The record is a 62-nucleotide RNA from Canis lupus, which matches "Gag/pol translational readthrough site" in Rfam. A search with the family's covariance model found it, with a score of 72 bits. It is annotated as a cis-regulatory element. The literature on the family includes a 1990 paper in Virus Genes by ten Dam et al., "RNA pseudoknots: translational frameshifting and readthrough on viral RNAs". Rfam links the family to the GO term viral translational readthrough. Pairs were carried over by alignment from the consensus structure, which is taken from published work.
RNA sequence: UAGGGGAGCCGGGGUUCGGCACCCCUCCCCAAGCCCAGGGUAACUCUCAGAGUGGAGGGGCA
Numbered sequence: 001u002a003g004g005g006g007a008g009c010c011g012g013g014g015u016u017c018g019g020c021a022c023c024c025c026u027c028c029c030c031a032a033g034c035c036c037a038g039g040g041u042a043a044c045u046c047u048c049a050g051a052g053u054g055g056a057g058g059g060g061c062a
Base pairs, nucleotide, nucleotide: 008041009040010039012036013035014034015033016031018029019028022060023059024058025057026056027055